[Rfam]
RNA sequence: GGUUACGGAGGAUAGAGGAAGUCGGGGCGACCCGGCUGGAUGCGAAAUUCUCC
Numbered sequence: 001g002g003u004u005a006c007g008g009a010g011g012a013u014a015g016a017g018g019a020a021g022u023c024g025g026g027g028c029g030a031c032c033c034g035g036c037u038g039g040a041u042g043c044g045a046a047a048u049u050c051u052c053c
Stems, first nucleotide, its partner, number of pairs: 020037007

Shown here is a 53-nucleotide sequence from Halalkalicoccus paucihalophilus, a member of the family "leuA-Halobacteria RNA". The base pairs follow the family's consensus structure, which is taken from published work.